[Rfam]
The family of this 130-nucleotide RNA is "Small Cajal body specific RNA 8". Its family is annotated with Cajal body, RNA processing and nucleolus in the Gene Ontology. Rfam describes the family as follows. scaRNAs are a specific class of small nuclear RNAs which localise to the Cajal bodies and guide the modification of RNA polymerase II transcribed spliceosomal RNAs U1, U2, U4, U5 and U12. U92 belong to the H/ACA box class of guide RNAs as it has the predicted hairpin-hinge-hairpin-tail structure, conserved H/ACA-box motifs and is found associated with GAR1. On this family, see Huttenhofer et al., EMBO J 2001: "RNomics: an experimental approach that identifies 201 candidates for novel, small, non-messenger RNAs in mouse". The base pairs follow the family's consensus structure, which is taken from published work. Rfam classes the family as a small Cajal body RNA.

RNA sequence: UGGGAGGCUGAUACACAAAUAGGGCUAAAUCUGCUCUAGUUGUCACAUGUUCUCCCUAUAGUAAAAUUGCCUUCUGAUGACCGGGACGAAUUGAGGGAAAUCGUAACGGACAGAUACGGGGCACACAAGU
Numbered sequence: 001u002g003g004g005a006g007g008c009u010g011a012u013a014c015a016c017a018a019a020u021a022g023g024g025c026u027a028a029a030u031c032u033g034c035u036c037u038a039g040u041u042g043u044c045a046c047a048u049g050u051u052c053u054c055c056c057u058a059u060a061g062u063a064a065a066a067u068u069g070c071c072u073u074c075u076g077a078u079g080a081c082c083g084g085g086a087c088g089a090a091u092u093g094a095g096g097g098a099a100a101u102c103g104u105a106a107c108g109g110a111c112a113g114a115u116a117c118g119g120g121g122c123a124c125a126c127a128a129g130u
Stems, first nucleotide, its partner, number of pairs: 002056006015043004022036004068123006081109003086104004